Shown here is a 212-nucleotide RNA sequence from Streptomyces sparsogenes, a member of the family "Streptomyces sRNA 4677". The family's RNA type in Rfam is small RNA. Rfam describes the family as follows. Located in the intergenic region between anti-sigma factor SCO4677 gene and a putative regulatory protein gene SCO4676. scr4677 expression requires the SCO4677 activity and scr4677 sRNA itself seem to affect the levels of the SCO4676-associated transcripts. For this family Rfam cites "Complex intra-operonic dynamics mediated by a small RNA in Streptomyces coelicolor" (Hindra et al., PLoS One, 2014). Rfam 15.1 lists 563 matches to the family in 285 species.

[Rfam]
RNA sequence: GGUUCGGUGGGCCACCAACUCCCCUAAAGAACCUGAGGAAAAGAACCUCCCACCCACCCUCCCCUCCCACAUCACCCGUACGAGUGACCGGCUUGCGGGUGCGGGAGGCGGGCGGUUACGUUCGCCGCAACAACCCCAAACAGACGACGGCCCCCGGCCGGGACUGGCAUCCCGAACGAGGGCCUGACCGAUCAGGAAGAAGCACCUUCCCG
Numbered sequence: 001g002g003u004u005c006g007g008u009g010g011g012c013c014a015c016c017a018a019c020u021c022c023c024c025u026a027a028a029g030a031a032c033c034u035g036a037g038g039a040a041a042a043g044a045a046c047c048u049c050c051c052a053c054c055c056a057c058c059c060u061c062c063c064c065u066c067c068c069a070c071a072u073c074a075c076c077c078g079u080a081c082g083a084g085u086g087a088c089c090g091g092c093u094u095g096c097g098g099g100u101g102c103g104g105g106a107g108g109c110g111g112g113c114g115g116u117u118a119c120g121u122u123c124g125c126c127g128c129a130a131c132a133a134c135c136c137c138a139a140a141c142a143g144a145c146g147a148c149g150g151c152c153c154c155c156g157g158c159c160g161g162g163a164c165u166g167g168c169a170u171c172c173c174g175a176a177c178g179a180g181g182g183c184c185u186g187a188c189c190g191a192u193c194a195g196g197a198a199g200a201a202g203c204a205c206c207u208u209c210c211c212g
Stems, first nucleotide, its partner, number of pairs: 007192002010189001072087004077082001096124003149184005155178002160173004195210005